mir-8799 microRNA precursor family: a 90-nucleotide sequence from Vulpes vulpes. It scores 56 bits against the family's covariance model.

RNA sequence: GGAGGAGGCCGAAUCCUGGGCUGUGUCCGGGCGCCCUGUGCUCCGGGGCCUGCGCUGUCGGAUUCGCGCUCCCGCCCCACAGCACAGUCU
Numbered sequence: 001g002g003a004g005g006a007g008g009c010c011g012a013a014u015c016c017u018g019g020g021c022u023g024u025g026u027c028c029g030g031g032c033g034c035c036c037u038g039u040g041c042u043c044c045g046g047g048g049c050c051u052g053c054g055c056u057g058u059c060g061g062a063u064u065c066g067c068g069c070u071c072c073c074g075c076c077c078c079a080c081a082g083c084a085c086a087g088u089c090u
Base pairs, nucleotide, nucleotide: 003090004089005088008085010082016074018072019071020070022068023067024066025065026062027061028060030056031055032054033053034052038050040049041048042047